[Rfam]
Shown here is an 85-nucleotide sequence from Paenibacillus monticola, a member of the family "c-di-GMP-I riboswitch aptamer". Gene Ontology term of the family: cyclic-di-GMP binding. A search with the family's covariance model found it, with a score of 75 bits. From the family's description: GEMM was predicted in a large-scale screen for bacterial structured RNA regulatory elements.
RNA sequence: UCCAGUAAAGGGUAAACCUGCUGAAAGGCAGGGGCACAAAGUCUCGGAUCUAAGGUAGGAAUACUAAGAUGGCCGGACUGCCUGG
Numbered sequence: 001u002c003c004a005g006u007a008a009a010g011g012g013u014a015a016a017c018c019u020g021c022u023g024a025a026a027g028g029c030a031g032g033g034g035c036a037c038a039a040a041g042u043c044u045c046g047g048a049u050c051u052a053a054g055g056u057a058g059g060a061a062u063a064c065u066a067a068g069a070u071g072g073c074c075g076g077a078c079u080g081c082c083u084g085g
Stems, first nucleotide, its partner, number of pairs: 012037002017032006040079004045075003048070003055064003